[Rfam]
RNA sequence: UCCCUUUGAAAAGUGCGCCAUAAGGCUUAUAUUCCGAGAGCCGCCUUGCGCGGCUAUGGCGAUAAACGGUGUCGAAAUAAGCUCUUCGGACCCGGGGGCGGUACCCGGCGCCUCCACCAAAGCCCGGUUGCGCCUGCUUUUGCUGCGCGACGCGGGUUUCGGCGGGGGCGAAAUAGGUUCGACGGGGAGUGUAAAGGACGAUCUUUUGCCCGGCAUGGUUCCGCCGUCAUCGGGCCGAACCUUAUAGUUGCUAAUGACAACUAUGCUCCGGUGGCUCUUGCCGCGUAAUGCGGCAAUAGUACCGAAAUCAAGCCCUUGGAGGUAGCACUUCAAGGCGGGGUCCGGAGGCACCUGGCAACAGAAGCCUCCACU
Numbered sequence: 001u002c003c004c005u006u007u008g009a010a011a012a013g014u015g016c017g018c019c020a021u022a023a024g025g026c027u028u029a030u031a032u033u034c035c036g037a038g039a040g041c042c043g044c045c046u047u048g049c050g051c052g053g054c055u056a057u058g059g060c061g062a063u064a065a066a067c068g069g070u071g072u073c074g075a076a077a078u079a080a081g082c083u084c085u086u087c088g089g090a091c092c093c094g095g096g097g098g099c100g101g102u103a104c105c106c107g108g109c110g111c112c113u114c115c116a117c118c119a120a121a122g123c124c125c126g127g128u129u130g131c132g133c134c135u136g137c138u139u140u141u142g143c144u145g146c147g148c149g150a151c152g153c154g155g156g157u158u159u160c161g162g163c164g165g166g167g168g169c170g171a172a173a174u175a176g177g178u179u180c181g182a183c184g185g186g187g188a189g190u191g192u193a194a195a196g197g198a199c200g201a202u203c204u205u206u207u208g209c210c211c212g213g214c215a216u217g218g219u220u221c222c223g224c225c226g227u228c229a230u231c232g233g234g235c236c237g238a239a240c241c242u243u244a245u246a247g248u249u250g251c252u253a254a255u256g257a258c259a260a261c262u263a264u265g266c267u268c269c270g271g272u273g274g275c276u277c278u279u280g281c282c283g284c285g286u287a288a289u290g291c292g293g294c295a296a297u298a299g300u301a302c303c304g305a306a307a308u309c310a311a312g313c314c315c316u317u318g319g320a321g322g323u324a325g326c327a328c329u330u331c332a333a334g335g336c337g338g339g340g341u342c343c344g345g346a347g348g349c350a351c352c353u354g355g356c357a358a359c360a361g362a363a364g365c366c367u368c369c370a371c372u
Stems, first nucleotide, its partner, number of pairs: 040054005058210005068203002070200004082189003086185003092108005109170007211226004216237003220234003338353004344369006
The family of this 372-nucleotide sequence from Candidatus Methylaffinis lahnbergensis is "Alphaproteobacteria transfer-messenger RNA". Lineage of the source: Bacteria > Pseudomonadati > Pseudomonadota > Beijerinckiaceae > Candidatus Methylaffinis. Bacterial tmRNA, also known as 10Sa RNA or SsrA, is named for its dual tRNA and mRNA-like properties. Its role is to liberate the mRNA from a stalled ribosome. Its family is annotated with RNA catabolic process in the Gene Ontology.